Small nucleolar RNA snoR111: a 137-nucleotide sequence from Rhamnella rubrinervis. Rfam classes the family as an H/ACA-box small nucleolar RNA. The organism belongs to Rhamnella, within Eukaryota.
RNA sequence: UAAAGGAAAUGAGGGACAGUGGGUGUGUCUCUUUGUUUAGAAGAACAGCGAGGCAUAACGAAAUUUCUCAUAAGGCCGAGAUAUCGUUUCAGUCGUCAUUUGUUUGCAUUGGCGAUUCGAUUGUUGCUCGUCCACAU
Numbered sequence: 001u002a003a004a005g006g007a008a009a010u011g012a013g014g015g016a017c018a019g020u021g022g023g024u025g026u027g028u029c030u031c032u033u034u035g036u037u038u039a040g041a042a043g044a045a046c047a048g049c050g051a052g053g054c055a056u057a058a059c060g061a062a063a064u065u066u067c068u069c070a071u072a073a074g075g076c077c078g079a080g081a082u083a084u085c086g087u088u089u090c091a092g093u094c095g096u097c098a099u100u101u102g103u104u105u106g107c108a109u110u111g112g113c114g115a116u117u118c119g120a121u122u123g124u125u126g127c128u129c130g131u132c133c134a135c136a137u
Stems, first nucleotide, its partner, number of pairs: 007038005013031006074133002077130004083121004092116007100108001
Dot-bracket structure: ......(((((.((((((.......))))))..)))))...................................((.((((..((((.....(((((((.(.......).))))))).)))).....)))).))....